Rfam assigns this 122-nucleotide RNA from Affinibrenneria salicis to the family "Enterobacteria greA leader". It is annotated as a cis-regulatory leader. The source organism's lineage runs through Bacteria, Pseudomonadota, Gammaproteobacteria, Pectobacteriaceae and Affinibrenneria.

[Rfam]
RNA sequence: GUCAUACUACGGCGCAUCAAGGGUUAAAGUAAACGAUGACCACCAGGGAACUCUGGGUUAAAAUACGUAUCAAAAUGCAAAUUGAAGCUGACCUGAAACUGGUUUUCGGGUUAGCUUGCUUU
Numbered sequence: 001g002u003c004a005u006a007c008u009a010c011g012g013c014g015c016a017u018c019a020a021g022g023g024u025u026a027a028a029g030u031a032a033a034c035g036a037u038g039a040c041c042a043c044c045a046g047g048g049a050a051c052u053c054u055g056g057g058u059u060a061a062a063a064u065a066c067g068u069a070u071c072a073a074a075a076u077g078c079a080a081a082u083u084g085a086a087g088c089u090g091a092c093c094u095g096a097a098a099c100u101g102g103u104u105u106u107c108g109g110g111u112u113a114g115c116u117u118g119c120u121u122u
Stems, first nucleotide, its partner, number of pairs: 001040005010035002014030002041048001057071001059069002087115011